[Rfam]
RNA: TPP riboswitch aptamer (THI element)
Organism: Paenibacillus albilobatus
RNA sequence: AGAUAGCACUAGGGGUGCCUUUUUGGCUGAGAGACAAGUAGCGAAUGCAUGCUCGAACGUUAACCCUUCACACCCGAUCUAGGUCAUACUAGCGUGGGGAAGUGCGGUGAAACGACA
Numbered sequence: 001a002g003a004u005a006g007c008a009c010u011a012g013g014g015g016u017g018c019c020u021u022u023u024u025g026g027c028u029g030a031g032a033g034a035c036a037a038g039u040a041g042c043g044a045a046u047g048c049a050u051g052c053u054c055g056a057a058c059g060u061u062a063a064c065c066c067u068u069c070a071c072a073c074c075c076g077a078u079c080u081a082g083g084u085c086a087u088a089c090u091a092g093c094g095u096g097g098g099g100a101a102g103u104g105c106g107g108u109g110a111a112a113c114g115a116c117a
Stems, first nucleotide, its partner, number of pairs: 006105005011067004017027003034060002073098004079092004